This 71-nucleotide RNA sequence from Staphylococcus gallinarum belongs to the Rfam family "S. aureus tsr31 small RNA".
RNA sequence: UCCUUUACUUAGGCCGACGUGUAUCAAUAUUAUACGCUCCCCCUUACAACCAUGUGAGCGGGAGCGAUUUU
Numbered sequence: 001u002c003c004u005u006u007a008c009u010u011a012g013g014c015c016g017a018c019g020u021g022u023a024u025c026a027a028u029a030u031u032a033u034a035c036g037c038u039c040c041c042c043c044u045u046a047c048a049a050c051c052a053u054g055u056g057a058g059c060g061g062g063a064g065c066g067a068u069u070u071u
Stems, first nucleotide, its partner, number of pairs: 002013003035066007043058006
The match comes from Rfam's covariance-model search (56 bits). The family's consensus secondary structure was predicted with RNAfold.